The family of this 95-nucleotide sequence from Halanaerobium saccharolyticum is "THF (Tetrahydrofolate) riboswitch aptamer".
The family's consensus secondary structure is taken from published work.
RNA sequence: GAUAGAGUAGACAGGAGGCGUAGAGUGUUCAAAGAUGGGACGUUGCUUUGAAACGAAAGCUUGUUAGCUGCGGUCUCCUUGUCGCGUCCGCUGUC
Numbered sequence: 001g002a003u004a005g006a007g008u009a010g011a012c013a014g015g016a017g018g019c020g021u022a023g024a025g026u027g028u029u030c031a032a033a034g035a036u037g038g039g040a041c042g043u044u045g046c047u048u049u050g051a052a053a054c055g056a057a058a059g060c061u062u063g064u065u066a067g068c069u070g071c072g073g074u075c076u077c078c079u080u081g082u083c084g085c086g087u088c089c090g091c092u093g094u095c
Stems, first nucleotide, its partner, number of pairs: 001095005010083004014078005019072003025054002028052007038089005058069004
A reference for the family is Huang et al. (2011), "Long-range pseudoknot interactions dictate the regulatory response in the tetrahydrofolate riboswitch", Proc Natl Acad Sci U S A. Gene Ontology term of the family: tetrahydrofolate metabolic process. Lineage of the source: Bacteria > Bacillati > Halanaerobiales > Halanaerobium > Halanaerobium saccharolyticum subsp. saccharolyticum.